[Rfam]
RNA: Small nucleolar RNA SNORD81
Organism: Saimiri boliviensis
RNA sequence: UUGGAUAGGUGAUAAUCUCAUUCCAACUUAAAGUCUCUCACUGAAUAUUUGAGAAUAAUAACACAUCAGAUAUUCUG
Numbered sequence: 001u002u003g004g005a006u007a008g009g010u011g012a013u014a015a016u017c018u019c020a021u022u023c024c025a026a027c028u029u030a031a032a033g034u035c036u037c038u039c040a041c042u043g044a045a046u047a048u049u050u051g052a053g054a055a056u057a058a059u060a061a062c063a064c065a066u067c068a069g070a071u072a073u074u075c076u077g
Stems, first nucleotide, its partner, number of pairs: 001077001003075005